[Rfam]
The record is a 120-nucleotide RNA from Maribellus comscasis, which matches "FMN riboswitch aptamer (RFN element)" in Rfam. The base pairs follow the family's consensus structure, which is taken from published work. A search with the family's covariance model found it, with a score of 119 bits.
RNA sequence: UGUUUUCUUCGGGGCAGGGCGUAAUUCCCUACCGGCGGUAAAAGUCCGCGACUCCUUUUUAGGACUGAUUUGGUGAAAUUCCAAAACCGACAGUGAAAGUCUGGAUGAGAGAAGAAAAUA
Numbered sequence: 001u002g003u004u005u006u007c008u009u010c011g012g013g014g015c016a017g018g019g020c021g022u023a024a025u026u027c028c029c030u031a032c033c034g035g036c037g038g039u040a041a042a043a044g045u046c047c048g049c050g051a052c053u054c055c056u057u058u059u060u061a062g063g064a065c066u067g068a069u070u071u072g073g074u075g076a077a078a079u080u081c082c083a084a085a086a087c088c089g090a091c092a093g094u095g096a097a098a099g100u101c102u103g104g105a106u107g108a109g110a111g112a113a114g115a116a117a118a119u120a
Stems, first nucleotide, its partner, number of pairs: 003118008017029003031100002033089002035049004044087002053064002069085005091103003
Lineage of the source: Bacteria > Pseudomonadati > Bacteroidota > Bacteroidia > Maribellus.